[Rfam]
The family of this 92-nucleotide RNA sequence from Aneurinibacillus soli is "c-di-GMP-I riboswitch aptamer". The match comes from Rfam's covariance-model search (71 bits). Gene Ontology term of the family: cyclic-di-GMP binding.

Nucleotides: 092
Stems, first nucleotide, its partner, number of pairs: 012037002017032006040086004047082002049078003056072007
Number, partner (000 for none) and nucleotide at each position: 001000u002000c003000a004000c005000g006000a007000u008000a009000a010000c011000g012037g013036c014000a015000a016000a017032a018031c019030u020029a021028g022027g023000g024000a025000a026000a027022u028021c029020u030019a031018g032017u033000g034000a035000c036013g037012c038000a039000a040086a041085g042084c043083u044000a045000u046000a047082g048081g049078g050077g051076u052000u053000a054000c055000g056072a057071u058070c059069g060068u061067a062066u063000a064000c065000u066062g067061u068060a069059c070058g071057a072056u073000u074000a075000u076051g077050c078049c079000a080000g081048c082047c083043a084042g085041c086040u087000a088000u089000c090000g091000a092000a